[Rfam]
RNA sequence: GAUUUCCAAUCGCUGAGUUUCCGUCGCAAACGGAAAACGGGGGAACCAUCCGCAUGACGGGGCAAGCCGCAAUUUGCCCUGCUGCGGUCCGCUGUGCAGGCAAUCCGAUGUGAGAGUCGGUUUGGCGCGCGGCAAGGGGUGAAUCUUCAAGCAGGCACCAUGGAGCAUGCUUGAAGUAGGGCGACUCUCACCGCCCGAAUCCGACAGCUAACCUCGUAAGCGUUGUUCGAGAGAGGGA
Numbered sequence: 001g002a003u004u005u006c007c008a009a010u011c012g013c014u015g016a017g018u019u020u021c022c023g024u025c026g027c028a029a030a031c032g033g034a035a036a037a038c039g040g041g042g043g044a045a046c047c048a049u050c051c052g053c054a055u056g057a058c059g060g061g062g063c064a065a066g067c068c069g070c071a072a073u074u075u076g077c078c079c080u081g082c083u084g085c086g087g088u089c090c091g092c093u094g095u096g097c098a099g100g101c102a103a104u105c106c107g108a109u110g111u112g113a114g115a116g117u118c119g120g121u122u123u124g125g126c127g128c129g130c131g132g133c134a135a136g137g138g139g140u141g142a143a144u145c146u147u148c149a150a151g152c153a154g155g156c157a158c159c160a161u162g163g164a165g166c167a168u169g170c171u172u173g174a175a176g177u178a179g180g181g182c183g184a185c186u187c188u189c190a191c192c193g194c195c196c197g198a199a200u201c202c203g204a205c206a207g208c209u210a211a212c213c214u215c216g217u218a219a220g221c222g223u224u225g226u227u228c229g230a231g232a233g234a235g236g237g238a
Base pairs, nucleotide, nucleotide: 011222012221013220014219018036019035020034021033022032023031024030037217038216039215040214041213042212047136137202138201139200145176146175147174148173149172150171151170152169153168179196180195181194182193
Background
Shown here is a 238-nucleotide RNA sequence from Paenibacillus protaetiae, a member of the family "c-di-AMP riboswitch aptamer (ydaO/yuaA leader)". A search with the family's covariance model found it, with a score of 86 bits.